[Rfam]
RNA sequence: UGAGUCCUGCGAUGUGCGUGUCCGCCGGGAUGUUUUGAGCCAACACCCGAACGAAAGGGAGUCUGCGUCAUUUGAGCUAACAGAAGCCGCCUUCAGAGCGGAACUGUGAACUCAGGUGCAGGACACCCACCUGCGAGAGCAGGUUCAAAACGAACGGAGCACGGCAUAACGGGGCUCCU
Numbered sequence: 001u002g003a004g005u006c007c008u009g010c011g012a013u014g015u016g017c018g019u020g021u022c023c024g025c026c027g028g029g030a031u032g033u034u035u036u037g038a039g040c041c042a043a044c045a046c047c048c049g050a051a052c053g054a055a056a057g058g059g060a061g062u063c064u065g066c067g068u069c070a071u072u073u074g075a076g077c078u079a080a081c082a083g084a085a086g087c088c089g090c091c092u093u094c095a096g097a098g099c100g101g102a103a104c105u106g107u108g109a110a111c112u113c114a115g116g117u118g119c120a121g122g123a124c125a126c127c128c129a130c131c132u133g134c135g136a137g138a139g140c141a142g143g144u145u146c147a148a149a150a151c152g153a154a155c156g157g158a159g160c161a162c163g164g165c166a167u168a169a170c171g172g173g174g175c176u177c178c179u
Stems, first nucleotide, its partner, number of pairs: 002177008012167004017163003031152004036147006057128003061124004068118001070117007082105002087101004
The family of this 179-nucleotide RNA from Thermoactinomyces daqus is "6S / SsrS RNA". A search with the family's covariance model found it, with a score of 89 bits. The organism belongs to Thermoactinomyces, within Bacteria. Rfam's curators write: E. coli 6S RNA was the first non coding RNA to be sequenced, but its function was unknown until recently. It consists of 184 nucleotides that fold into an extended hairpin structure with a large single-stranded internal bulge. Rfam 15.1 lists 5,006 matches to the family in 4,638 species.